[Rfam]
RNA sequence: GGCUGCCUGAGGGGGAGGUGCCCUCAGUACGAGAGGAACGGGGCGCCGCGGCCUCUAGUGUACCGGUUGUCCGGUAGGGCAGUGCCGGGCAGCCACGCCGUGGGGGAUAACCGCUGAAGGCAUCUAAGCGGGAAGCUCCCCCCGAAAAUAGGCAGCCAUCCGCUUCCGGGGCGGUUCCCCGCCUCGGGGGUGGGUAGGGUACCCGUAGAAGACGGGCUUGAUGGGGCGGGGGUGUAACCCCCAAGGGUUUCCGAGGGGGGAGCCCGCCGCUCCCAAUCACCCGGAGG
Numbered sequence: 001g002g003c004u005g006c007c008u009g010a011g012g013g014g015g016a017g018g019u020g021c022c023c024u025c026a027g028u029a030c031g032a033g034a035g036g037a038a039c040g041g042g043g044c045g046c047c048g049c050g051g052c053c054u055c056u057a058g059u060g061u062a063c064c065g066g067u068u069g070u071c072c073g074g075u076a077g078g079g080c081a082g083u084g085c086c087g088g089g090c091a092g093c094c095a096c097g098c099c100g101u102g103g104g105g106g107a108u109a110a111c112c113g114c115u116g117a118a119g120g121c122a123u124c125u126a127a128g129c130g131g132g133a134a135g136c137u138c139c140c141c142c143c144g145a146a147a148a149u150a151g152g153c154a155g156c157c158a159u160c161c162g163c164u165u166c167c168g169g170g171g172c173g174g175u176u177c178c179c180c181g182c183c184u185c186g187g188g189g190g191u192g193g194g195u196a197g198g199g200u201a202c203c204c205g206u207a208g209a210a211g212a213c214g215g216g217c218u219u220g221a222u223g224g225g226g227c228g229g230g231g232g233u234g235u236a237a238c239c240c241c242c243a244a245g246g247g248u249u250u251c252c253g254a255g256g257g258g259g260g261a262g263c264c265c266g267c268c269g270c271u272c273c274c275a276a277u278c279a280c281c282c283g284g285a286g287g
Stems, first nucleotide, its partner, number of pairs: 001157008011143004017047008048101005056095001058093001063088005068081005104138003111131005197282004202216004222275003225271005230265003235260001238259005245252001